[Rfam]
RNA sequence: GGGUGUAGGUGGACGGUUGACGGCGAUUUAUUUCGCUGAGGAAAGUCCUCUCUCACUCUGAAUCGGGAUACCGUGCAAGCGGUUAAGGCAAGAGUCUUAGCAGAGGCACAGAAACGACACAGCCCUUGGAAUAUGCAAUGAUUCAUUUGAUGAUGAGUUCUCCCUGGGAUUUGGUGAAACGGCCAAUCUGCUCCUGGAGCAAGCCCAAAUGUCGAGAUCAGUUAUUCAGACUGCUUGAAGGUAGGGUGCAUAGACGAAUACCGUUAGAACAGAAAGAGGCUUACGGCCUAGACCC
Number, nucleotide and partner (000 for none) at each position: 001g295002g294003g293004u000005g000006u290007a289008g288009g287010u285011g284012g265013a264014c263015g262016g261017u260018u000019g000020a000021c038022g037023g036024c035025g034026a000027u000028u000029u000030a000031u000032u000033u000034c025035g024036c023037u022038g021039a000040g000041g000042a000043a282044a281045g280046u000047c279048c278049u277050c276051u275052c199053u198054c197055a000056c000057u230058c229059u228060g227061a226062a225063u000064c000065g194066g193067g192068a000069u190070a083071c082072c081073g080074u079075g000076c000077a000078a000079g074080c073081g072082g071083u070084u000085a098086a097087g096088g095089c094090a000091a000092g000093a000094g089095u088096c087097u086098u085099a189100g188101c000102a000103g000104a000105g184106g183107c182108a000109c000110a000111g000112a000113a000114a000115c000116g000117a000118c000119a000120c173121a172122g171123c168124c167125c166126u000127u000128g163129g162130a161131a000132u000133a000134u000135g000136c000137a000138a000139u000140g000141a000142u000143u153144c152145a000146u000147u000148u000149g000150a000151u000152g144153a143154u000155g000156a000157g000158u000159u000160c000161u130162c129163c128164c000165u000166g125167g124168g123169a000170u000171u122172u121173g120174g000175u000176g000177a000178a000179a000180c000181g000182g107183c106184c105185a000186a000187u000188c100189u099190g069191c000192u067193c066194c065195u000196g000197g054198a053199g052200c000201a000202a000203g247204c246205c245206c244207a000208a000209a000210u000211g000212u238213c237214g236215a235216g234217a000218u000219c000220a000221g000222u000223u000224a000225u062226u061227c060228a059229g058230a057231c000232u000233g000234c216235u215236u214237g213238a212239a000240g000241g000242u000243a000244g206245g205246g204247u203248g000249c000250a000251u000252a000253g000254a000255c000256g000257a000258a000259u000260a017261c016262c015263g014264u013265u012266a000267g000268a000269a000270c000271a000272g000273a000274a000275a051276g050277a049278g048279g047280c045281u044282u043283a000284c011285g010286g000287c009288c008289u007290a006291g000292a000293c003294c002295c001
Annotation:
A member of the RNA family "Archaeal RNase P" from Thermoplasmatales archaeon SCGC AB-540-F20, 295 nucleotides long. The match comes from Rfam's covariance-model search (173 bits). For this family Rfam cites "The Ribonuclease P Database" (Brown, Nucleic Acids Res, 1999). Its family is annotated with tRNA processing, ribonuclease P activity and multimeric ribonuclease P complex in the Gene Ontology. Clan: RNaseP clan. Rfam classes the family as a ribozyme. Pairs were carried over by alignment from the consensus structure, which is taken from published work. About the family: Ribonuclease P (RNase P) is a ubiquitous endoribonuclease, found in archaea, bacteria and eukarya as well as chloroplasts and mitochondria. The organism belongs to Thermoplasmatales, within Archaea.